[Rfam]
RNA sequence: AAGCCUAAUCUGCAUGUCUGCUCCCUUGUGCUCAGUUCCAACAGGGCAGUCGCAGGCACACAGCAUCUCCCUCUCAGUUUAAGAGAGUUAGAGGCUGUCCCUAAGAUAGGGCUGGCUCUUAAAGCACGAGAGGACAAU
Numbered sequence: 001a002a003g004c005c006u007a008a009u010c011u012g013c014a015u016g017u018c019u020g021c022u023c024c025c026u027u028g029u030g031c032u033c034a035g036u037u038c039c040a041a042c043a044g045g046g047c048a049g050u051c052g053c054a055g056g057c058a059c060a061c062a063g064c065a066u067c068u069c070c071c072u073c074u075c076a077g078u079u080u081a082a083g084a085g086a087g088u089u090a091g092a093g094g095c096u097g098u099c100c101c102u103a104a105g106a107u108a109g110g111g112c113u114g115g116c117u118c119u120u121a122a123a124g125c126a127c128g129a130g131a132g133g134a135c136a137a138u
Base pairs, nucleotide, nucleotide: 003057004056005055006054020050021049022048024046025045026044027043028042029041070133071132072131073130074129075128077125078124079123080122083120084119085118086117087116088115089114090113091112